RNA sequence: ACAGUAAAAAAGUGGGGCCAUUGAAGGAGCGUUCACGUCGUGGUCCCUGUCAGAUGAAAAUCUGUGAAUCCUUCA
Numbered sequence: 001a002c003a004g005u006a007a008a009a010a011a012g013u014g015g016g017g018c019c020a021u022u023g024a025a026g027g028a029g030c031g032u033u034c035a036c037g038u039c040g041u042g043g044u045c046c047c048u049g050u051c052a053g054a055u056g057a058a059a060a061u062c063u064g065u066g067a068a069u070c071c072u073u074c075a
Base pairs, nucleotide, nucleotide: 014047015046016045017044018043019042022075023074024073025072026071027070028069029041030040031039051064052063053062054061055060
Mammalian CPEB3 ribozyme: a 75-nucleotide sequence from Strongylocentrotus purpuratus.
Taxonomically the source falls in Strongylocentrotus (Eukaryota, Bilateria, Echinoidea, Strongylocentrotidae).
Pairs were carried over by alignment from the consensus structure, which is taken from published work.
It scores 68 bits against the family's covariance model.